[Rfam]
About this RNA
Fluoride riboswitch aptamer (crcB RNA motif): a 60-nucleotide sequence from Clostridium aminobutyricum. Lineage of the source: Bacteria > Bacillati > Clostridia > Eubacteriales > Clostridium.
RNA sequence: UAUAUGAACGGCGAUGGAGUUCGCCUUUAAACGCUUUUAGCUAAUGACUCCUACAAGUGG
Numbered sequence: 001u002a003u004a005u006g007a008a009c010g011g012c013g014a015u016g017g018a019g020u021u022c023g024c025c026u027u028u029a030a031a032c033g034c035u036u037u038u039a040g041c042u043a044a045u046g047a048c049u050c051c052u053a054c055a056a057g058u059g060g
Base pairs, nucleotide, nucleotide: 010025011024012023013022016051017050018049019048020047021046033041034040